Description: A member of the RNA family "Bacterial small subunit ribosomal RNA" from Cryomorphaceae bacterium 1068, 600 nucleotides of a longer RNA. On this family, see Yusupov et al., Science 2001: "Crystal structure of the ribosome at 5.5 A resolution". The base pairs follow the family's consensus structure, which is taken from published work. Lineage of the source: Bacteria > Pseudomonadati > Flavobacteriia > Flavobacteriales > Cryomorphaceae.

RNA sequence: UGACGGGGGCCCGCACAAGCGGUGGAGCAUGUGGUUUAAUUCGAUGAUACGCGAGGAACCUUACCUGGGCUUAAAUGCAGAACGACAGGCUGGGAAACCAGCCCUUCUUCGGACGGACUGCAAGGUGCUGCAUGGUUGUCGUCAGCUCGUGCCGUGAGGUGUCGGGUUAAGUCCCAUAACGAGCGCAACCCCUAUCACUAGUUGCCAGCGAGUAAUGUCGGGGACUCUAGUGAAACUGCCCGUGCAAGCGGUGAGGAAGGUGGGGAUGACGUCAAAUCAUCACGGCCCUUACGUCCAGGGCUACACACGUGCUACAAUGGCGCAUACAAAGGGCAGCUACCUGGUGACAGGAUGCUAAUCUCUAAAGUGCGUCUCAGUUCGGAUUGAAGUCUGCAACUCGACUUCAUGAAGCUGGAAUCGCUAGUAAUCGCGCAUCAGCCAUGGCGCGGUGAAUACGUUCCCGGGCCUUGUACACACCGCCCGUCAAGCCAUGGAAGCUGGGGGUGCCUGAAGUCGGUGACCGCAAGGAGCCGCCUAGGGCAAAACUGGUAACUGGGGCUAAGUCGUAACAAGGUAGCCGUACCGGAAGGUGCGGCUGGA
Numbered sequence: 001u002g003a004c005g006g007g008g009g010c011c012c013g014c015a016c017a018a019g020c021g022g023u024g025g026a027g028c029a030u031g032u033g034g035u036u037u038a039a040u041u042c043g044a045u046g047a048u049a050c051g052c053g054a055g056g057a058a059c060c061u062u063a064c065c066u067g068g069g070c071u072u073a074a075a076u077g078c079a080g081a082a083c084g085a086c087a088g089g090c091u092g093g094g095a096a097a098c099c100a101g102c103c104c105u106u107c108u109u110c111g112g113a114c115g116g117a118c119u120g121c122a123a124g125g126u127g128c129u130g131c132a133u134g135g136u137u138g139u140c141g142u143c144a145g146c147u148c149g150u151g152c153c154g155u156g157a158g159g160u161g162u163c164g165g166g167u168u169a170a171g172u173c174c175c176a177u178a179a180c181g182a183g184c185g186c187a188a189c190c191c192c193u194a195u196c197a198c199u200a201g202u203u204g205c206c207a208g209c210g211a212g213u214a215a216u217g218u219c220g221g222g223g224a225c226u227c228u229a230g231u232g233a234a235a236c237u238g239c240c241c242g243u244g245c246a247a248g249c250g251g252u253g254a255g256g257a258a259g260g261u262g263g264g265g266a267u268g269a270c271g272u273c274a275a276a277u278c279a280u281c282a283c284g285g286c287c288c289u290u291a292c293g294u295c296c297a298g299g300g301c302u303a304c305a306c307a308c309g310u311g312c313u314a315c316a317a318u319g320g321c322g323c324a325u326a327c328a329a330a331g332g333g334c335a336g337c338u339a340c341c342u343g344g345u346g347a348c349a350g351g352a353u354g355c356u357a358a359u360c361u362c363u364a365a366a367g368u369g370c371g372u373c374u375c376a377g378u379u380c381g382g383a384u385u386g387a388a389g390u391c392u393g394c395a396a397c398u399c400g401a402c403u404u405c406a407u408g409a410a411g412c413u414g415g416a417a418u419c420g421c422u423a424g425u426a427a428u429c430g431c432g433c434a435u436c437a438g439c440c441a442u443g444g445c446g447c448g449g450u451g452a453a454u455a456c457g458u459u460c461c462c463g464g465g466c467c468u469u470g471u472a473c474a475c476a477c478c479g480c481c482c483g484u485c486a487a488g489c490c491a492u493g494g495a496a497g498c499u500g501g502g503g504g505u506g507c508c509u510g511a512a513g514u515c516g517g518u519g520a521c522c523g524c525a526a527g528g529a530g531c532c533g534c535c536u537a538g539g540g541c542a543a544a545a546c547u548g549g550u551a552a553c554u555g556g557g558g559c560u561a562a563g564u565c566g567u568a569a570c571a572a573g574g575u576a577g578c579c580g581u582a583c584c585g586g587a588a589g590g591u592g593c594g595g596c597u598g599g600a
Stems, first nucleotide, its partner, number of pairs: 001474002003471003007468007015458002019421005024315001026313008034304002040055004064299007076122003080118001083115002088103006106113002124288002127286004133282002135277003138273001140271002145184006151160003164175003190265004195233007205222002209220003236256002239253001240251004319373007331362003336355002341350003380411001385406007427450007477573001479570001482566002487560004492555003497550005505542004513535001515533004521528002575598010